[Rfam]
RNA sequence: CUUAUUUUAUGAUGGUAUGAUACUAAACCUCUAACGGGAGGUAUUGUACUUGAUUUUCAUAUG
Number, nucleotide and partner (000 for none) at each position: 001c063002u000003u061004a060005u059006u000007u000008u000009a000010u000011g000012a000013u000014g050015g049016u048017a047018u046019g045020a044021u043022a042023c041024u000025a000026a000027a000028c000029c038030u037031c036032u000033a000034a000035c000036g031037g030038g029039a000040g000041g023042u022043a021044u020045u019046g018047u017048a016049c015050u014051u000052g000053a000054u000055u000056u000057u000058c000059a005060u004061a003062u000063g001
RNA: Selenocysteine insertion sequence 1